[Rfam]
RNA sequence: UUUUGGUUUAGUUAGGAGGCACAUAAUAAUGUGCAUCUGAUGCUCUCUUUGGCCUUUUGAGGGGGCGCCUCAUCUAUCUAUUCUACCUAGAAGUGCCCCCCAAGCAGCCAUAGACAUUC
Numbered sequence: 001u002u003u004u005g006g007u008u009u010a011g012u013u014a015g016g017a018g019g020c021a022c023a024u025a026a027u028a029a030u031g032u033g034c035a036u037c038u039g040a041u042g043c044u045c046u047c048u049u050u051g052g053c054c055u056u057u058u059g060a061g062g063g064g065g066c067g068c069c070u071c072a073u074c075u076a077u078c079u080a081u082u083c084u085a086c087c088u089a090g091a092a093g094u095g096c097c098c099c100c101c102a103a104g105c106a107g108c109c110a111u112a113g114a115c116a117u118u119c
Stems, first nucleotide, its partner, number of pairs: 004021002007018003034042003047113002050110004056104004061100008
This 119-nucleotide sequence from Panicum virgatum belongs to the Rfam family "Small nucleolar RNA U19". Its family is annotated with RNA processing and nucleolus in the Gene Ontology. The match comes from Rfam's covariance-model search (61 bits).